[Rfam]
RNA sequence: AUCUGGCUGCGACGUUGGUGACUGCCAACAAUGUUUUUUGAUCUAUACCUUUCGAAGUUGGGCGCUCUCGCAGAGCCGACGGCAGUAGACCGAGCUUGACUCGGAAACUUAAUGUUGGCCGCAAGCUCCCCCCUGGUUCUCCCAGGUCGAAAUCUGAGGUAAAACGGCGUCGCGGUUAGAUC
Numbered sequence: 001a002u003c004u005g006g007c008u009g010c011g012a013c014g015u016u017g018g019u020g021a022c023u024g025c026c027a028a029c030a031a032u033g034u035u036u037u038u039u040g041a042u043c044u045a046u047a048c049c050u051u052u053c054g055a056a057g058u059u060g061g062g063c064g065c066u067c068u069c070g071c072a073g074a075g076c077c078g079a080c081g082g083c084a085g086u087a088g089a090c091c092g093a094g095c096u097u098g099a100c101u102c103g104g105a106a107a108c109u110u111a112a113u114g115u116u117g118g119c120c121g122c123a124a125g126c127u128c129c130c131c132c133c134u135g136g137u138u139c140u141c142c143c144a145g146g147u148c149g150a151a152a153u154c155u156g157a158g159g160u161a162a163a164a165c166g167g168c169g170u171c172g173c174g175g176u177u178a179g180a181u182c
Base pairs, nucleotide, nucleotide: 002180003179004178005177006176007175008174009173010172011171012170013169014168015167018165019164035152036151037150039149040148041147042146043145044144060130061129062128064126065125066124069121075119076118077117078116079115080114085108086107090104091103092102093101094100
Rfam assigns this 182-nucleotide sequence from Synechococcus elongatus to the family "6S / SsrS RNA". The base pairs follow the family's consensus structure, which is taken from published work.